[Rfam]
RNA sequence: CCUCCGAUAAGGUACUCUAUUUUCUGAAUAUUGGCAAAAUAGACACCUUAUCCUAGGGG
Dot-bracket structure: .((..(((((((.....((((((..(........)))))))....)))))))..))...

Annotation
This 59-nucleotide RNA from Vombatus ursinus belongs to the Rfam family "mir-7386 microRNA precursor family". A search with the family's covariance model found it, with a score of 52 bits.